A member of the RNA family "Small nucleolar RNA SNORD59" from Phaethon lepturus, 74 nucleotides long. The family has 24 seed sequences and 1,355 matches in Rfam 15.1. NCBI's taxonomy places the organism under Eukaryota, Opisthokonta, Gnathostomata, Theropoda, Phaethon.

[Rfam]
RNA sequence: CCUUCGUUGAUGAGUAACCAGUUGACUUUCGUUCUUCUGAGCGUGCUGAAGCAACUCUUAUUGAUCUGAGAAGG
Numbered sequence: 001c002c003u004u005c006g007u008u009g010a011u012g013a014g015u016a017a018c019c020a021g022u023u024g025a026c027u028u029u030c031g032u033u034c035u036u037c038u039g040a041g042c043g044u045g046c047u048g049a050a051g052c053a054a055c056u057c058u059u060a061u062u063g064a065u066c067u068g069a070g071a072a073g074g
Stems, first nucleotide, its partner, number of pairs: 001074003005070001